Rfam assigns this 91-nucleotide RNA sequence from Variovorax sp. Root473 to the family "Glycine riboswitch aptamer". The organism belongs to Variovorax, within Bacteria. The base pairs follow the family's consensus structure.
RNA sequence: CUCGCCGGGUCAGGAGAGAGCCCCGCAUGACGGGGCCGCCGAAGGCGCAGGGGUUCCCCGAACGCUCAGGCAAAAGGACUGACAAGACGCC
Numbered sequence: 001c002u003c004g005c006c007g008g009g010u011c012a013g014g015a016g017a018g019a020g021c022c023c024c025g026c027a028u029g030a031c032g033g034g035g036c037c038g039c040c041g042a043a044g045g046c047g048c049a050g051g052g053g054u055u056c057c058c059c060g061a062a063c064g065c066u067c068a069g070g071c072a073a074a075a076g077g078a079c080u081g082a083c084a085a086g087a088c089g090c091c
Stems, first nucleotide, its partner, number of pairs: 006086001009083005020036004038071003041067002045065003051059002